Overview: A member of the RNA family "let-7 microRNA precursor family" from Scleropages formosus, 85 nucleotides long. Lineage of the source: Eukaryota > Opisthokonta > Teleostei > Osteoglossomorpha > Scleropages. Rfam links the family to the GO terms miRNA-mediated post-transcriptional gene silencing and RISC complex. For this family Rfam cites "Control of developmental timing in animals" (Rougvie, Nat Rev Genet, 2001). The match comes from Rfam's covariance-model search (74 bits). About the family: This family represents the microRNAs (miRNA) let-7 and mir-98. let-7 was identified from a study of developmental timing in C. elegans, and was later shown to be part of a much larger class of non-coding RNAs termed miRNAs. The base pairs follow the family's consensus structure, which was predicted with RNAalifold.

RNA sequence: CUGGGCAGAGGUAGCAGAUUGUAUAGUUGUAGGGCAGAGAUUUUGCCCCAGAGGAGAUAACUAUACAACUUGCUGCCUUUCUUAG
Numbered sequence: 001c002u003g004g005g006c007a008g009a010g011g012u013a014g015c016a017g018a019u020u021g022u023a024u025a026g027u028u029g030u031a032g033g034g035c036a037g038a039g040a041u042u043u044u045g046c047c048c049c050a051g052a053g054g055a056g057a058u059a060a061c062u063a064u065a066c067a068a069c070u071u072g073c074u075g076c077c078u079u080u081c082u083u084a085g
Stems, first nucleotide, its partner, number of pairs: 001085005008079010019068009032048004049056001